Background: This 94-nucleotide RNA from Butyrivibrio sp. ob235 belongs to the Rfam family "SAM riboswitch aptamer (S box leader)". Rfam's curators write: The SAM riboswitch is found upstream of a number of genes which code for proteins involved in methionine or cysteine biosynthesis in Gram-positive bacteria.
RNA sequence: AACCUAUGAAGAGUGCGCGAGGGACAAGCCCUAUGACCGCACGACAACCUGCCAUUAUAAGGAUGGUAAGGUGCCAAAGCUUGAUCGAUGGGUG
Dot-bracket structure: .((((((.....(((((...(((.[[[[)))......)))))(.((.((((((((.......)))))).)))).)...(]]]]..).)))))).
The match comes from Rfam's covariance-model search (56 bits). The source organism's lineage runs through Bacteria, Bacillati, Clostridia, Lachnospirales and Butyrivibrio.